This 109-nucleotide RNA sequence from Treponema vincentii belongs to the Rfam family "TD-1 RNA".
The match comes from Rfam's covariance-model search (66 bits).
By type it is a cis-regulatory element.
The source organism's lineage runs through Bacteria, Spirochaetota, Treponematales, Treponemataceae and Treponema vincentii.

[Rfam]
RNA sequence: AAAACACUGCGAGUUUGCUUUCGCAAACGUCGUAGAUUAUAUGCGUGCUGUCGCGCAUGAAUGCAGCAGCCUCCAAAGUUAAAACUUUGUUCAGCUGUUGCAUUUUAAG
Numbered sequence: 001a002a003a004a005c006a007c008u009g010c011g012a013g014u015u016u017g018c019u020u021u022c023g024c025a026a027a028c029g030u031c032g033u034a035g036a037u038u039a040u041a042u043g044c045g046u047g048c049u050g051u052c053g054c055g056c057a058u059g060a061a062u063g064c065a066g067c068a069g070c071c072u073c074c075a076a077a078g079u080u081a082a083a084a085c086u087u088u089g090u091u092c093a094g095c096u097g098u099u100g101c102a103u104u105u106u107a108a109g
Stems, first nucleotide, its partner, number of pairs: 011031002013028006043056005061103010074089006